[Rfam]
RNA sequence: GCUGAUCUAUGAUGACAAUUCAUGGUGGACUGUUGGGUGAUACCUGCGGAUAUGGGACUGAGAUCAGUG
Numbered sequence: 001g002c003u004g005a006u007c008u009a010u011g012a013u014g015a016c017a018a019u020u021c022a023u024g025g026u027g028g029a030c031u032g033u034u035g036g037g038u039g040a041u042a043c044c045u046g047c048g049g050a051u052a053u054g055g056g057a058c059u060g061a062g063a064u065c066a067g068u069g
Base pairs, nucleotide, nucleotide: 001068002067003066004065005064
Notes:
Rfam assigns this 69-nucleotide RNA sequence from Chiloscyllium punctatum to the family "Small nucleolar RNA SNORD99". A search with the family's covariance model found it, with a score of 67 bits. Its Rfam clan is "SNORD58 clan". Rfam 15.1 lists 673 matches to the family in 613 species.